RNA sequence: UGCAGCUGCGUCAAAUUCAGUCCUCGUCCAGACAGUGCUGGGGACUGGCCAAACAGCUGCCACAGCAAUAUCUGUAGCUCCUGAGCCCCGCUGUCCCUCUCUCUUGACCCUGGGGAUAAAUAAAUGCUACAGACAGCA
Numbered sequence: 001u002g003c004a005g006c007u008g009c010g011u012c013a014a015a016u017u018c019a020g021u022c023c024u025c026g027u028c029c030a031g032a033c034a035g036u037g038c039u040g041g042g043g044a045c046u047g048g049c050c051a052a053a054c055a056g057c058u059g060c061c062a063c064a065g066c067a068a069u070a071u072c073u074g075u076a077g078c079u080c081c082u083g084a085g086c087c088c089c090g091c092u093g094u095c096c097c098u099c100u101c102u103c104u105u106g107a108c109c110c111u112g113g114g115g116a117u118a119a120a121u122a123a124a125u126g127c128u129a130c131a132g133a134c135a136g137c138a
Base pairs, nucleotide, nucleotide: 002060003059004058005057018047019046020045021044022043023042024041025040026039028037074130075129076128077127078126079124086115087114088113089112090111